[Rfam]
About this RNA:
Shown here is a 107-nucleotide RNA from Punica granatum, a member of the family "MIR397 microRNA precursor family". The base pairs follow the family's consensus structure, which was predicted with WAR. Gene Ontology terms of the family: miRNA-mediated post-transcriptional gene silencing and RISC complex. It scores 63 bits against the family's covariance model.
RNA sequence: GAUAGAAACAUUAUUGAGUGCAGAGCUGAUGAAAUUGUUCCAAACCUGGAAAUGGGAAAGGAGGGUGCCGGAGAAUUUCAUCAACGCUGCACUCAAUGAUGUUUCUA
Numbered sequence: 001g002a003u004a005g006a007a008a009c010a011u012u013a014u015u016g017a018g019u020g021c022a023g024a025g026c027u028g029a030u031g032a033a034a035u036u037g038u039u040c041c042a043a044a045c046c047u048g049g050a051a052a053u054g055g056g057a058a059a060g061g062a063g064g065g066u067g068c069c070g071g072a073g074a075a076u077u078u079c080a081u082c083a084a085c086g087c088u089g090c091a092c093u094c095a096a097u098g099a100u101g102u103u104u105c106u107a
Stems, first nucleotide, its partner, number of pairs: 006104006013097011025085001027083002030080003